Shown here is a 100-nucleotide sequence from Rhodopseudomonas rhenobacensis, a member of the family "Rhizobiales-2 RNA". It scores 93 bits against the family's covariance model. NCBI's taxonomy places the organism under Bacteria, Pseudomonadati, Pseudomonadota, Alphaproteobacteria, Rhodopseudomonas. By type it is a small RNA.
RNA sequence: GGGAGCGGCCAUCCCUCCCAACCAGCCAUAUCUGGUGCGAGCGCCCAUCCACCCAGCGCCAAUAUGGCUUGACCCGCCCGGUUGUCCCCCCGGGCGGGUC
Numbered sequence: 001g002g003g004a005g006c007g008g009c010c011a012u013c014c015c016u017c018c019c020a021a022c023c024a025g026c027c028a029u030a031u032c033u034g035g036u037g038c039g040a041g042c043g044c045c046c047a048u049c050c051a052c053c054c055a056g057c058g059c060c061a062a063u064a065u066g067g068c069u070u071g072a073c074c075c076g077c078c079c080g081g082u083u084g085u086c087c088c089c090c091c092g093g094g095c096g097g098g099u100c
Stems, first nucleotide, its partner, number of pairs: 001019005025068007034060005071100011